[Rfam]
RNA: Small nucleolar RNA snoR27
RNA sequence: UGAGGAUCAGUAAUUUUACUGAGAACCAGCGUUAUCUAUCCAAAACUUCCUAAAGAAAUUGAAGAUAAUCAGAAGUCUGAAUUUACUGAGACUCCUCU
Numbered sequence: 001u002g003a004g005g006a007u008c009a010g011u012a013a014u015u016u017u018a019c020u021g022a023g024a025a026c027c028a029g030c031g032u033u034a035u036c037u038a039u040c041c042a043a044a045a046c047u048u049c050c051u052a053a054a055g056a057a058a059u060u061g062a063a064g065a066u067a068a069u070c071a072g073a074a075g076u077c078u079g080a081a082u083u084u085a086c087u088g089a090g091a092c093u094c095c096u097c098u
Stems, first nucleotide, its partner, number of pairs: 002097005007091001